[Rfam]
RNA sequence: CCUGUAUUUGGACCAUCGGUCUGCCGAGCAAUAUCACCCGCUCGGUGAAAGAUCUUCCCUUUGUCGU
Numbered sequence: 001c002c003u004g005u006a007u008u009u010g011g012a013c014c015a016u017c018g019g020u021c022u023g024c025c026g027a028g029c030a031a032u033a034u035c036a037c038c039c040g041c042u043c044g045g046u047g048a049a050a051g052a053u054c055u056u057c058c059c060u061u062u063g064u065c066g067u
Base pairs, nucleotide, nucleotide: 004064005063006062010058011057012056015053016052017051020049022047023046024045025044026043027042028041029040

Description:
This 67-nucleotide sequence from Bombyx mori belongs to the Rfam family "mir-2774 microRNA precursor family". Taxonomically the source falls in Bombyx (Eukaryota, Protostomia, Dicondylia, Glossata). The base pairs follow the family's consensus structure, which was predicted with RNAalifold. Gene Ontology terms of the family: miRNA-mediated post-transcriptional gene silencing and RISC complex.